[Rfam]
Rfam assigns this 131-nucleotide RNA from Phyllotreta striolata to the family "Small nucleolar RNA psi18S-1377". Gene Ontology terms of the family: nucleolus and RNA processing. From the family's description: psi18S-1377 is a member of the H/ACA class of snoRNA. This family is responsible for guiding the modification of uridines 1377 and 1279 to pseudouridine in Drosophila 18S rRNA. Rfam 15.1 lists 113 matches to the family in 34 species.
RNA sequence: UAGUCUCCGUGUUACCUAAAUACACUUUCGCCAUAAGUAUUCGGGUGUCAAGCGAGACAUACACCAAACUCCUGACUCCACAAGCGUACGUGUUUCCAUCACGUUUCGCUUACUAUCGUCGGGGAACAACU
Numbered sequence: 001u002a003g004u005c006u007c008c009g010u011g012u013u014a015c016c017u018a019a020a021u022a023c024a025c026u027u028u029c030g031c032c033a034u035a036a037g038u039a040u041u042c043g044g045g046u047g048u049c050a051a052g053c054g055a056g057a058c059a060u061a062c063a064c065c066a067a068a069c070u071c072c073u074g075a076c077u078c079c080a081c082a083a084g085c086g087u088a089c090g091u092g093u094u095u096c097c098a099u100c101a102c103g104u105u106u107c108g109c110u111u112a113c114u115a116u117c118g119u120c121g122g123g124g125a126a127c128a129a130c131u
Stems, first nucleotide, its partner, number of pairs: 003058005010050002016044002019041004082111005089103004